[Rfam]
RNA sequence: UCUUGUGCCAUAGUGAAACUCUAUGGUAACUCUUUAGGUAUUCCUUCGAACAAGAUGCAAGAAUAUACAAAAAUGACAGCCCUUCUACGAGUGAUUAGCCUGGUCGUGAUUAGCGUGGUGGUGAUUAUUAUCCCACCGUGCGGGGCUGCACUUGGACGAGGAAAGGCUUAAAAAACAAGCCUUAACGAACUAAGACCCCCGCACCGAAAGGUUCGGGGGUUUUUUUUGACCUUAAAAACUUAAACGAGGAGCAGAAAGUGAACACUAGCAUAAAAUUCUGUUUCUCAAGAU
Number, nucleotide and partner (000 for none) at each position: 001u000002c000003u000004u000005g030006u028007g027008c026009c025010a024011u023012a000013g000014u000015g000016a000017a000018a000019c000020u000021c000022u000023a011024u010025g009026g008027u007028a006029a000030c005031u000032c000033u000034u071035u070036a000037g068038g000039u000040a000041u063042u062043c061044c000045u059046u055047c054048g000049a000050a000051c000052a000053a000054g047055a046056u000057g000058c000059a045060a000061g043062a042063a041064u000065a000066u000067a000068c037069a000070a035071a034072a000073a000074u000075g000076a000077c000078a000079g000080c000081c249082c248083u247084u000085c000086u000087a000088c000089g241090a240091g000092u000093g000094a000095u235096u234097a233098g231099c000100c000101u228102g227103g226104u000105c115106g114107u113108g000109a000110u000111u000112a000113g107114c106115g105116u000117g137118g136119u135120g134121g133122u000123g132124a131125u130126u000127a000128u000129u000130a125131u124132c123133c121134c120135a119136c118137c117138g157139u156140g000141c154142g153143g152144g151145g000146c000147u000148g000149c000150a000151c144152u143153u142154g141155g000156a139157c138158g000159a000160g186161g000162a000163a000164a000165g182166g181167c000168u179169u178170a000171a000172a000173a000174a000175a000176c000177a000178a169179g168180c000181c166182u165183u000184a000185a000186c160187g000188a000189a000190c000191u000192a223193a222194g221195a220196c219197c218198c217199c216200c215201g214202c000203a212204c211205c210206g000207a000208a000209a000210g205211g204212u203213u000214c201215g200216g199217g198218g197219g196220u195221u194222u193223u192224u000225u000226u103227u102228g101229a000230c000231c098232u000233u097234a096235a095236a000237a000238a000239c000240u090241u089242a000243a000244a000245c000246g000247a083248g082249g081250a282251g281252c280253a279254g278255a277256a276257a000258g271259u270260g269261a000262a000263c000264a000265c000266u000267a000268g000269c260270a259271u258272a000273a000274a000275a000276u256277u255278c254279u253280g252281u251282u250283u000284c000285u000286c000287a000288a000289g000290a000291u000
RNA: Soft rot Enterobacteriaceae Rev 39 5'UTR
Organism: Citrobacter freundii